[Rfam]
RNA sequence: CAGUGCAUUGGUAGCCAGGAAGCCAGGGGCGGUAGCGUG
Numbered sequence: 001c002a003g004u005g006c007a008u009u010g011g012u013a014g015c016c017a018g019g020a021a022g023c024c025a026g027g028g029g030c031g032g033u034a035g036c037g038u039g
Base pairs, nucleotide, nucleotide: 008026009025010024011023012022

A member of the RNA family "JUMPstart RNA" from Salmonella enterica, 39 nucleotides long.
Pairs were carried over by alignment from the consensus structure, which is taken from published work.